[Rfam]
RNA sequence: AUUAACCUUAAAGCGCCUGGACUCAAGCUAUACUUGAGUUGACGAGGAAGAAGUUUUAUCGAAAGAUUCGGCGGAUUAACUUCCGGUAUGCUACUACCGUUAAAGGUCUCACAAAGUCCCGAGGUGACUCGGGAAACAAAAGGGACUAGGUAGCUAC
Number, nucleotide and partner (000 for none) at each position: 001a000002u000003u000004a000005a000006c000007c000008u000009u000010a000011a000012a000013g000014c000015g000016c000017c000018u000019g000020g040021a039022c038023u037024c036025a035026a034027g033028c000029u000030a000031u000032a000033c027034u026035u025036g024037a023038g022039u021040u020041g000042a000043c000044g000045a000046g000047g000048a000049a000050g083051a082052a081053g080054u079055u000056u000057u000058a000059u071060c070061g069062a068063a000064a000065g000066a000067u000068u062069c061070g060071g059072c000073g000074g000075a000076u000077u000078a000079a054080c053081u052082u051083c050084c099085g098086g097087u096088a095089u000090g000091c000092u000093a000094c000095u088096a087097c086098c085099g084100u000101u000102a000103a000104a000105g147106g146107u145108c144109u143110c142111a000112c000113a000114a000115a000116g000117u134118c133119c132120c131121g130122a129123g128124g000125u000126g000127a000128c123129u122130c121131g120132g119133g118134a117135a000136a000137c000138a000139a000140a000141a000142g110143g109144g108145a107146c106147u105148a000149g000150g000151u000152a000153g000154c000155u000156a000157c000
The family of this 157-nucleotide RNA sequence from Alkalicella caledoniensis is "glmS glucosamine-6-phosphate activated ribozyme aptamer".
By type it is a riboswitch.